[Rfam]
RNA sequence: CUCUUAUCCCGAGACAGCGGAGGGACAGGCCCUGUGAAGCGCAGCAACCAUCACCGCCGAAAAAGGUGAACGGUGCUAACCUGCAAGACAUGUCUUCGUAUAUGUCUUGACCGAUAAGAG
Numbered sequence: 001c002u003c004u005u006a007u008c009c010c011g012a013g014a015c016a017g018c019g020g021a022g023g024g025a026c027a028g029g030c031c032c033u034g035u036g037a038a039g040c041g042c043a044g045c046a047a048c049c050a051u052c053a054c055c056g057c058c059g060a061a062a063a064a065g066g067u068g069a070a071c072g073g074u075g076c077u078a079a080c081c082u083g084c085a086a087g088a089c090a091u092g093u094c095u096u097c098g099u100a101u102a103u104g105u106c107u108u109g110a111c112c113g114a115u116a117a118g119a120g
Stems, first nucleotide, its partner, number of pairs: 001120008013042001017040002022032003026083004043077004048073002051069004084109010
A member of the RNA family "SAM riboswitch aptamer (S box leader)" from Salisediminibacterium halotolerans, 120 nucleotides long. The match comes from Rfam's covariance-model search (62 bits). From the family's description: The SAM riboswitch is found upstream of a number of genes which code for proteins involved in methionine or cysteine biosynthesis in Gram-positive bacteria.